[Rfam]
RNA sequence: GAUAAACUAGGUGAAAAACCUAGUCGCCGUAAAUCUAAGGUUUCCUGGGGAAGGUUAAUCCGCCCAGGGUUAGUCGGUUCCUAAGCUGAGGCCUAAGGGCGUAAGCGAAGGGCAACAGGUUAAUAUUCCUGUACUACUGGACGACGACAAAGACGCGAUGGGGGGACGCAGAAGGGUAGGCCAUGCCCGUGUCGGACAUCGGGCUCUAAGCCGGUAGGGGGUCUCGACAGGCAAAUCCGUUGAGACAUUAACCCUGAGAGGUGACGGGGAGGCCGUAAGGCCACAAACUGGCUCAGCCCAUGCUGCCAAGAAAAGCCUCUAGCGAGUCGUUCGGUAACCGUACCGCAAACCGACUCAGGUAGACAGGGAGAGUAUCCCAAGGCGCU
Numbered sequence: 001g002a003u004a005a006a007c008u009a010g011g012u013g014a015a016a017a018a019c020c021u022a023g024u025c026g027c028c029g030u031a032a033a034u035c036u037a038a039g040g041u042u043u044c045c046u047g048g049g050g051a052a053g054g055u056u057a058a059u060c061c062g063c064c065c066a067g068g069g070u071u072a073g074u075c076g077g078u079u080c081c082u083a084a085g086c087u088g089a090g091g092c093c094u095a096a097g098g099g100c101g102u103a104a105g106c107g108a109a110g111g112g113c114a115a116c117a118g119g120u121u122a123a124u125a126u127u128c129c130u131g132u133a134c135u136a137c138u139g140g141a142c143g144a145c146g147a148c149a150a151a152g153a154c155g156c157g158a159u160g161g162g163g164g165g166a167c168g169c170a171g172a173a174g175g176g177u178a179g180g181c182c183a184u185g186c187c188c189g190u191g192u193c194g195g196a197c198a199u200c201g202g203g204c205u206c207u208a209a210g211c212c213g214g215u216a217g218g219g220g221g222u223c224u225c226g227a228c229a230g231g232c233a234a235a236u237c238c239g240u241u242g243a244g245a246c247a248u249u250a251a252c253c254c255u256g257a258g259a260g261g262u263g264a265c266g267g268g269g270a271g272g273c274c275g276u277a278a279g280g281c282c283a284c285a286a287a288c289u290g291g292c293u294c295a296g297c298c299c300a301u302g303c304u305g306c307c308a309a310g311a312a313a314a315g316c317c318u319c320u321a322g323c324g325a326g327u328c329g330u331u332c333g334g335u336a337a338c339c340g341u342a343c344c345g346c347a348a349a350c351c352g353a354c355u356c357a358g359g360u361a362g363a364c365a366g367g368g369a370g371a372g373u374a375u376c377c378c379a380a381g382g383c384g385c386u
Base pairs, nucleotide, nucleotide: 006024007023008022009021010020011019025384026383027382028381034363035362036361039344040343044068045067046066047065048064049063053061054060075340076339077338078337080111081110085106086105087104089102091100092099093098115132116131117130118129119128135336136335137334138333139332140331141330142329143328144327145326155323156322160319161318162317163316168306169305170304171303174299175298176297179293180292181291182290183289185204186203187202188201189200206267207266210262211261212260217255218254219253222245223244224243225242226241227240228239230238231237269284271282272281273280274279350359351358366378367377368376369375

A member of the RNA family "Bacterial large subunit ribosomal RNA" from Methylomirabilis oxygeniifera, 386 nucleotides of a longer RNA. Rfam's curators put it in the seed alignment. The literature on the family includes a 2001 paper in Science by Yusupov et al., "Crystal structure of the ribosome at 5.5 A resolution".